[Rfam]
RNA sequence: UUGCCUUCAACUGAUGAAUAAGGAAAAUAAUGAUACGGUGUGCAGCCCGCAUCCUCGUGCACGUUCUCAAGUGUAAUAUUUGAACGUGUACAGGUCUGCCUGCUGAGAUGUUUCGUCUACUUCAUGAGCUGUCUCGCGGUACCAGGAUCUGCCCC
Numbered sequence: 001u002u003g004c005c006u007u008c009a010a011c012u013g014a015u016g017a018a019u020a021a022g023g024a025a026a027a028u029a030a031u032g033a034u035a036c037g038g039u040g041u042g043c044a045g046c047c048c049g050c051a052u053c054c055u056c057g058u059g060c061a062c063g064u065u066c067u068c069a070a071g072u073g074u075a076a077u078a079u080u081u082g083a084a085c086g087u088g089u090a091c092a093g094g095u096c097u098g099c100c101u102g103c104u105g106a107g108a109u110g111u112u113u114c115g116u117c118u119a120c121u122u123c124a125u126g127a128g129c130u131g132u133c134u135c136g137c138g139g140u141a142c143c144a145g146g147a148u149c150u151g152c153c154c155c
Stems, first nucleotide, its partner, number of pairs: 004023004032053003036049003054071002057068001086154001088152002092150006101139001106134005112128005
This 155-nucleotide sequence from Bagarius yarrelli belongs to the Rfam family "U12 minor spliceosomal RNA". By type it is a spliceosomal small nuclear RNA. A search with the family's covariance model found it, with a score of 68 bits. Taxonomically the source falls in Bagarius (Eukaryota, Craniata, Actinopteri, Otophysi).